[Rfam]
RNA sequence: AUCGCUUCUCGGCCUUUUCGGCUAAGAUCAAAGUGUAGUAUCUGUUCUCGUCGGUUUGAAAGCCGGCGCUGGUCUCAUUGGGACCAGGCUCUUUCAAGCAGAUUUUUGGACAUCGGUCGGGACCCGCAGUUUACUCGGACCUGUGCCACGGAUCGUCUCGACACUGGGAUGCUGUCGAGUUCGGUCCACUUCCG
Numbered sequence: 001a002u003c004g005c006u007u008c009u010c011g012g013c014c015u016u017u018u019c020g021g022c023u024a025a026g027a028u029c030a031a032a033g034u035g036u037a038g039u040a041u042c043u044g045u046u047c048u049c050g051u052c053g054g055u056u057u058g059a060a061a062g063c064c065g066g067c068g069c070u071g072g073u074c075u076c077a078u079u080g081g082g083a084c085c086a087g088g089c090u091c092u093u094u095c096a097a098g099c100a101g102a103u104u105u106u107u108g109g110a111c112a113u114c115g116g117u118c119g120g121g122a123c124c125c126g127c128a129g130u131u132u133a134c135u136c137g138g139a140c141c142u143g144u145g146c147c148a149c150g151g152a153u154c155g156u157c158u159c160g161a162c163a164c165u166g167g168g169a170u171g172c173u174g175u176c177g178a179g180u181u182c183g184g185u186c187c188a189c190u191u192c193c194g
Stems, first nucleotide, its partner, number of pairs: 007027003011023004049068006070086007115147003118143004128135002150187006157179006